[Rfam]
RNA sequence: UGAUCUCGGAUGGGAGAGACGCUUCGCCGCCAGCGGAGCGCGCCGAAGGAGCAACCCCCCGGAAACUCUCAGGCAUCCGCACCAUCCGAGGGAG
Numbered sequence: 001u002g003a004u005c006u007c008g009g010a011u012g013g014g015a016g017a018g019a020c021g022c023u024u025c026g027c028c029g030c031c032a033g034c035g036g037a038g039c040g041c042g043c044c045g046a047a048g049g050a051g052c053a054a055c056c057c058c059c060c061g062g063a064a065a066c067u068c069u070c071a072g073g074c075a076u077c078c079g080c081a082c083c084a085u086c087c088g089a090g091g092g093a094g
Stems, first nucleotide, its partner, number of pairs: 006089008020040006042074003045070002049068003055062002
The family of this 94-nucleotide RNA from Acidothermus cellulolyticus is "Glycine riboswitch aptamer".
The match comes from Rfam's covariance-model search (66 bits).